[Rfam]
The record is an 81-nucleotide sequence from Betacoronavirus hongkongense, which matches "Coronavirus frameshifting stimulation element" in Rfam. The base pairs follow the family's consensus structure, which is taken from published work. Taxonomically the source falls in Betacoronavirus hongkongense (Viruses, Orthornavirae, Nidovirales, Betacoronavirus). The match comes from Rfam's covariance-model search (67 bits). From the family's description: This family represents a conserved stem-loop found in Coronaviruses which can promote ribosomal frameshifting.
RNA sequence: GGGUUAGGGGUACUAGUGUGAAUGCCCGGCUAGUACCCUGUGCUAGUGGUUUAUCUACUGAUGUUCAAUUAAGGGCAUUUG
Numbered sequence: 001g002g003g004u005u006a007g008g009g010g011u012a013c014u015a016g017u018g019u020g021a022a023u024g025c026c027c028g029g030c031u032a033g034u035a036c037c038c039u040g041u042g043c044u045a046g047u048g049g050u051u052u053a054u055c056u057a058c059u060g061a062u063g064u065u066c067a068a069u070u071a072a073g074g075g076c077a078u079u080u081g
Base pairs, nucleotide, nucleotide: 008038009037010036011035012034013033014032015031016030023077024076025075026074027073042065044063045062049058050057